[Rfam]
RNA sequence: GAUGCAUCCGGAUGAAGUCUUCAUCGGCCAUAAAUCGAAUUGCAUUGGGUCGGUGGGACUUUCGUCCGUUUGCAAA
Numbered sequence: 001g002a003u004g005c006a007u008c009c010g011g012a013u014g015a016a017g018u019c020u021u022c023a024u025c026g027g028c029c030a031u032a033a034a035u036c037g038a039a040u041u042g043c044a045u046u047g048g049g050u051c052g053g054u055g056g057g058a059c060u061u062u063c064g065u066c067c068g069u070u071u072g073c074a075a076a
Stems, first nucleotide, its partner, number of pairs: 003074004009068007016060005022055002025052005
The family of this 76-nucleotide RNA sequence from Nylanderia fulva is "mir-278 microRNA precursor family". NCBI's taxonomy places the organism under Eukaryota, Allotriocarida, Formicoidea, Formicinae, Nylanderia.